[Rfam]
RNA sequence: GGAAGAGAAACGUUCCCGGUGGAACGUCCGGACUUCAAAUCCGGGUGGGGCUGUCAGCCAGUCUCAGGUGGGUUCGACACCCACUCUCUUCC
Numbered sequence: 001g002g003a004a005g006a007g008a009a010a011c012g013u014u015c016c017c018g019g020u021g022g023a024a025c026g027u028c029c030g031g032a033c034u035u036c037a038a039a040u041c042c043g044g045g046u047g048g049g050g051c052u053g054u055c056a057g058c059c060a061g062u063c064u065c066a067g068g069u070g071g072g073u074u075c076g077a078c079a080c081c082c083a084c085u086c087u088c089u090u091c092c
Stems, first nucleotide, its partner, number of pairs: 001092008011026006027045006047065005069083004

Overview
Shown here is a 92-nucleotide RNA from Hyphococcus luteus, a member of the family "Selenocysteine transfer RNA". The organism belongs to Hyphococcus, within Bacteria. The base pairs follow the family's consensus structure, which is taken from published work.